Shown here is a 130-nucleotide RNA from Sciurus carolinensis, a member of the family "Small nucleolar RNA SNORA33". By type it is an H/ACA-box small nucleolar RNA. From the family's description: ACA33 is a member of the H/ACA class of snoRNA that guide the sites of modification of uridines to pseudouridines. Rfam 15.1 lists 1,176 matches to the family in 522 species. The family's consensus secondary structure was predicted with PFOLD.
[Rfam]
RNA sequence: AAGCCACAUUGUGACUCUGCUUACCUGGAUGUGUUUCUGCAGAUUUUUAGAAAAAGCUGCCAGUACUAAUGCCAUGUCGUAAGCCUUAAGGCCCCUGAAGUCACUAAGGUUCCCAGAAAUGGCUGCAGCA
Numbered sequence: 001a002a003g004c005c006a007c008a009u010u011g012u013g014a015c016u017c018u019g020c021u022u023a024c025c026u027g028g029a030u031g032u033g034u035u036u037c038u039g040c041a042g043a044u045u046u047u048u049a050g051a052a053a054a055a056g057c058u059g060c061c062a063g064u065a066c067u068a069a070u071g072c073c074a075u076g077u078c079g080u081a082a083g084c085c086u087u088a089a090g091g092c093c094c095c096u097g098a099a100g101u102c103a104c105u106a107a108g109g110u111u112c113c114c115a116g117a118a119a120u121g122g123c124u125g126c127a128g129c130a
Stems, first nucleotide, its partner, number of pairs: 003061001005059002016043005071123004083110006091102001093100001